[Rfam]
RNA sequence: GAGUGUUACAGCUUUUUUAGAAUUUGUGUAGCAGGCUUUCAGGUUUUGCUGGAAAUCCCCA
Number, nucleotide and partner (000 for none) at each position: 001g000002a000003g000004u000005g000006u000007u000008a000009c000010a000011g000012c000013u000014u000015u000016u000017u000018u000019a000020g000021a000022a000023u000024u000025u000026g000027u000028g000029u000030a000031g000032c000033a000034g058035g057036c000037u055038u054039u053040c052041a000042g050043g049044u048045u000046u000047u000048g044049c043050u042051g000052g040053a039054a038055a037056u000057c035058c034059c000060c000061a000
The family of this 61-nucleotide RNA sequence from Aotus nancymaae is "U7 small nuclear RNA". The family's consensus secondary structure was predicted with PFOLD. The source organism's lineage runs through Eukaryota, Opisthokonta, Amniota, Euarchontoglires and Aotus.